Rfam assigns this 153-nucleotide sequence from Muraenolepis orangiensis to the family "U12 minor spliceosomal RNA". NCBI's taxonomy places the organism under Eukaryota, Clupeocephala, Neoteleostei, Eurypterygia, Muraenolepis. The base pairs follow the family's consensus structure. It scores 125 bits against the family's covariance model.
RNA sequence: AUGCCUUAAACUGAUGAGUAAGGAAAAUAACGACGCGGGGUGACGCCCGUGUCCUCGUUCACAUUACGAGAAGAAUUUUUGAACGGGCACAGGUCCGCCUGUCGAGGUGGCUCACCUACUUCGUGGGAUGCCUUCAGGACUAGGAUCUGCCCC
Numbered sequence: 001a002u003g004c005c006u007u008a009a010a011c012u013g014a015u016g017a018g019u020a021a022g023g024a025a026a027a028u029a030a031c032g033a034c035g036c037g038g039g040g041u042g043a044c045g046c047c048c049g050u051g052u053c054c055u056c057g058u059u060c061a062c063a064u065u066a067c068g069a070g071a072a073g074a075a076u077u078u079u080u081g082a083a084c085g086g087g088c089a090c091a092g093g094u095c096c097g098c099c100u101g102u103c104g105a106g107g108u109g110g111c112u113c114a115c116c117u118a119c120u121u122c123g124u125g126g127g128a129u130g131c132c133u134u135c136a137g138g139a140c141u142a143g144g145a146u147c148u149g150c151c152c153c
Stems, first nucleotide, its partner, number of pairs: 004023005032053008054070005085152004091148006100136002105133005111127005